[Rfam]
RNA sequence: GGAUGUGAGGGUGAUCUGGCUGCGACAUCUGUCACCCCAUUGAUCGCCAGGGUUGAUUCUGCUGAUCUAGCUGGCUAGGUGGGUGUCCCCUUCCUUCCUCACCGCUCCACGUGCAUCCCUCCUGAAGCUGAGCGCUUGGUCGAAGAGGAUGACCUUCCCCGAUAGAGGAGAGGAUCGUUUUUCAGUCAAGUGUAUACAAGUAGCUGCGCUCCCCUGCUAGAACCUUUAAACAAGCUGUCAAGGUCCAUUUGUAGGAAAACGUAAGGUGGUCAAGCUUCCAAGACUCCAGACAUAUCCAAAUGAGGCGCUGCAUUUGGCAGUCUGCCUUUCUAA
Dot-bracket structure: (((.(((((((.((...((....((((((((((.(((.(..((((((.............)).))))).)..))...)))))))))).)).))..)))))))...))).......((((((((((.((.....))))))(((....(((......))).)))..))))...)).............................(((...((.((.(((.......(((..(((((.............))))).)))....))).)).))...)))........................(.((((((((((.....)))))..)))))..)..
Numbered sequence: 001g002g003a004u005g006u007g008a009g010g011g012u013g014a015u016c017u018g019g020c021u022g023c024g025a026c027a028u029c030u031g032u033c034a035c036c037c038c039a040u041u042g043a044u045c046g047c048c049a050g051g052g053u054u055g056a057u058u059c060u061g062c063u064g065a066u067c068u069a070g071c072u073g074g075c076u077a078g079g080u081g082g083g084u085g086u087c088c089c090c091u092u093c094c095u096u097c098c099u100c101a102c103c104g105c106u107c108c109a110c111g112u113g114c115a116u117c118c119c120u121c122c123u124g125a126a127g128c129u130g131a132g133c134g135c136u137u138g139g140u141c142g143a144a145g146a147g148g149a150u151g152a153c154c155u156u157c158c159c160c161g162a163u164a165g166a167g168g169a170g171a172g173g174a175u176c177g178u179u180u181u182u183c184a185g186u187c188a189a190g191u192g193u194a195u196a197c198a199a200g201u202a203g204c205u206g207c208g209c210u211c212c213c214c215u216g217c218u219a220g221a222a223c224c225u226u227u228a229a230a231c232a233a234g235c236u237g238u239c240a241a242g243g244u245c246c247a248u249u250u251g252u253a254g255g256a257a258a259a260c261g262u263a264a265g266g267u268g269g270u271c272a273a274g275c276u277u278c279c280a281a282g283a284c285u286c287c288a289g290a291c292a293u294a295u296c297c298a299a300a301u302g303a304g305g306c307g308c309u310g311c312a313u314u315u316g317g318c319a320g321u322c323u324g325c326c327u328u329u330c331u332a333a
Stems, first nucleotide, its partner, number of pairs: 001108003005102007013093002018090002024087010035074002037070001039068001042067004046062002116173002118168004122139004127135002140162003147158003203275003209269002212266002215263003225256003230252005300331001302328005307321005
Description:
7SK RNA: a 333-nucleotide RNA sequence from Pteropus alecto. Clan: 7SK clan. The base pairs follow the family's consensus structure, which is taken from published work. The match comes from Rfam's covariance-model search (335 bits). The organism belongs to Pteropus, within Eukaryota. Rfam describes the family as follows. 7SK was discovered as an abundant small nuclear RNA in the mid-70s but a possible function has only recently been suggested. Two independent studies have found that 7SK RNA binds the CDK9/cyclin T complex (known as elongation factor P-TEFb). P-TEFb activates transcription by phosphorylating the C-terminal domain of RNA polymerase II. This process is negatively regulated by the 7SK RNP. The secondary structure of 7SK RNA shown here was proposed by Wasserman and Steitz on the basis of chemical modification and enzymatic cleavage experiments. This family contains a number of annotated pseudogenes and 7SK derived repeats.